[Rfam]
RNA: Iron response element II
RNA sequence: CUCCAAUCAGCUGCAGUGCCGGCUACUGCAG
Number, nucleotide and partner (000 for none) at each position: 001c031002u030003c000004c028005a027006a000007u025008c000009a024010g023011c022012u021013g020014c018015a000016g000017u000018g014019c000020c013021g012022g011023c010024u009025a007026c000027u005028g004029c000030a002031g001